The record is a 121-nucleotide RNA sequence from Lacticaseibacillus paracasei, which matches "Ribosomal protein L10 leader" in Rfam. The sequence is in the family's curated seed alignment. The base pairs follow the family's consensus structure, which was predicted with CMfinder. This family is a putative r-protein leader autoregulatory structure found in B. subtilis and other low-GC Gram-positive bacteria. It is located in the 5' untranslated regions of mRNAs encoding ribosomal proteins L10 and L12 (rplJ-rplL). A Rho-independent transcription terminator structure that is probably involved in regulation is included at the 3' end. By type it is a cis-regulatory leader.

RNA sequence: UUGUGAUCAUUCACUCUGCCUAAGACUCAGGGGGCGUAAGCCUUAAUUAUCCUGCCGAGGUGGUAUCGGAAACACUAGAUACCUCUAUGUCUUGGUAGACAUGGAGUUUUUUUAUAUUUAA
Dot-bracket structure: ...........................((((((((....))).......)))))............................((((((((((....))))))))))...............
Numbered sequence: 001u002u003g004u005g006a007u008c009a010u011u012c013a014c015u016c017u018g019c020c021u022a023a024g025a026c027u028c029a030g031g032g033g034g035c036g037u038a039a040g041c042c043u044u045a046a047u048u049a050u051c052c053u054g055c056c057g058a059g060g061u062g063g064u065a066u067c068g069g070a071a072a073c074a075c076u077a078g079a080u081a082c083c084u085c086u087a088u089g090u091c092u093u094g095g096u097a098g099a100c101a102u103g104g105a106g107u108u109u110u111u112u113u114a115u116a117u118u119u120a121a
Stems, first nucleotide, its partner, number of pairs: 028054005033042003083106010